[Rfam]
RNA sequence: AUUUGAUCUGUCGCACCGCCGUUACAUUUCUACGGUAGAUUGACAGCCGUCGGAUGAUGAUUGACCGCGGAUGUACCGGCAAUCGAACCGGCGGACGAGGAAGCGGGGCUUUUGGCUCCGCUUUUUUGUU
Numbered sequence: 001a002u003u004u005g006a007u008c009u010g011u012c013g014c015a016c017c018g019c020c021g022u023u024a025c026a027u028u029u030c031u032a033c034g035g036u037a038g039a040u041u042g043a044c045a046g047c048c049g050u051c052g053g054a055u056g057a058u059g060a061u062u063g064a065c066c067g068c069g070g071a072u073g074u075a076c077c078g079g080c081a082a083u084c085g086a087a088c089c090g091g092c093g094g095a096c097g098a099g100g101a102a103g104c105g106g107g108g109c110u111u112u113u114g115g116c117u118c119c120g121c122u123u124u125u126u127u128g129u130u
Stems, first nucleotide, its partner, number of pairs: 004043001006041001007039003015036004047094007059084001062081002065079003095129012108116003
Alphaproteobacterial sRNA ar35: a 130-nucleotide sequence from Manganibacter manganicus. It is annotated as a small RNA. Pairs were carried over by alignment from the consensus structure. NCBI's taxonomy places the organism under Bacteria, Pseudomonadati, Alphaproteobacteria, Phyllobacteriaceae, Manganibacter. It scores 52 bits against the family's covariance model. For this family Rfam cites "A survey of sRNA families in alpha-proteobacteria" (del Val et al., RNA Biol, 2012).